A member of the RNA family "Betacoronavirus 3'UTR" from Betacoronavirus hongkongense, 329 nucleotides long. Taxonomically the source falls in Betacoronavirus hongkongense (Viruses, Riboviria, Pisuviricota, Embecovirus). The sequence is in the family's curated seed alignment. For this family Rfam cites "The 3' cis-acting genomic replication element of the severe acute respiratory syndrome coronavirus can function in the murine coronavirus genome" (Goebel et al., J Virol, 2004). Rfam describes the family as follows. The 3' UTR of betacoronaviruses is approximately 300-500 nucleotides long.

RNA sequence: GUUUACUUGCUACUCUUGAUGAUCCUUAUGUAGAAGACUCUGUUGCUUAAUGAGAAUGAAUCCUAAUUCGACACUAGGUGGUAACCCCUCGCUAUUAUUCGGAAUAGGACACUCUCUAUCAGAAUGAAUUCUUGCUGUAAUAACAGAUAGAGUAGGUUGUUACAGACUAUAUAUUAAUUAGUAGAAAUUUUAUAUUUAGACAUUUGAUUGUUAGAGUAGUUAUAAGGUUUAGCUGUAGUAUAAACGCCUCCGGGAAGAGCUAUCAAUUGUAGUGUUUAAUAUAUAUAUUAGUAUAUGAUUGAAAUUAAUUAUAGCCUUUUGGAGGAAUU
Numbered sequence: 001g002u003u004u005a006c007u008u009g010c011u012a013c014u015c016u017u018g019a020u021g022a023u024c025c026u027u028a029u030g031u032a033g034a035a036g037a038c039u040c041u042g043u044u045g046c047u048u049a050a051u052g053a054g055a056a057u058g059a060a061u062c063c064u065a066a067u068u069c070g071a072c073a074c075u076a077g078g079u080g081g082u083a084a085c086c087c088c089u090c091g092c093u094a095u096u097a098u099u100c101g102g103a104a105u106a107g108g109a110c111a112c113u114c115u116c117u118a119u120c121a122g123a124a125u126g127a128a129u130u131c132u133u134g135c136u137g138u139a140a141u142a143a144c145a146g147a148u149a150g151a152g153u154a155g156g157u158u159g160u161u162a163c164a165g166a167c168u169a170u171a172u173a174u175u176a177a178u179u180a181g182u183a184g185a186a187a188u189u190u191u192a193u194a195u196u197u198a199g200a201c202a203u204u205u206g207a208u209u210g211u212u213a214g215a216g217u218a219g220u221u222a223u224a225a226g227g228u229u230u231a232g233c234u235g236u237a238g239u240a241u242a243a244a245c246g247c248c249u250c251c252g253g254g255a256a257g258a259g260c261u262a263u264c265a266a267u268u269g270u271a272g273u274g275u276u277u278a279a280u281a282u283a284u285a286u287a288u289u290a291g292u293a294u295a296u297g298a299u300u301g302a303a304a305u306u307a308a309u310u311a312u313a314g315c316c317u318u319u320u321g322g323a324g325g326a327a328u329u
Stems, first nucleotide, its partner, number of pairs: 052116004057111002061109005068102004075094003080089002128328006135165010173309007184292001187289001209265002212262003227245005232239002247254002315322002